[Rfam]
The family of this 89-nucleotide RNA from Bacillus cereus is "c-di-GMP-I riboswitch aptamer". The sequence is in the family's curated seed alignment. Pairs were carried over by alignment from the consensus structure, which is taken from published work. About the family: GEMM was predicted in a large-scale screen for bacterial structured RNA regulatory elements.

RNA sequence: GAAAUAAAUCGGCACACUAUUCGAAAGGAUAGGUCGCAAAGCUAAGAGUCUAAGGUAAUACAUAUUACUAUGAUAGUCUGGUUGCAAUU
Dot-bracket structure: ...........((...((((((....))))))...))..((((.((((((....((((......))))...)))..)))))))......